[Rfam]
This 70-nucleotide RNA sequence from Tenacibaculum sp. MAR_2010_89 belongs to the Rfam family "DUF805 RNA". Taxonomically the source falls in Tenacibaculum (Bacteria, Pseudomonadati, Flavobacteriia, Flavobacteriales). It scores 71 bits against the family's covariance model. It is annotated as a cis-regulatory element.
RNA sequence: CCAAAGUAGAGUUCAGGAACUACUGUAAAAAACGAGGCGAAAUCUGAAAAGCCAAAAGAGUAAGAAAUAA
Numbered sequence: 001c002c003a004a005a006g007u008a009g010a011g012u013u014c015a016g017g018a019a020c021u022a023c024u025g026u027a028a029a030a031a032a033c034g035a036g037g038c039g040a041a042a043u044c045u046g047a048a049a050a051g052c053c054a055a056a057a058g059a060g061u062a063a064g065a066a067a068u069a070a
Base pairs, nucleotide, nucleotide: 006023007022008021009020036053037052038051043064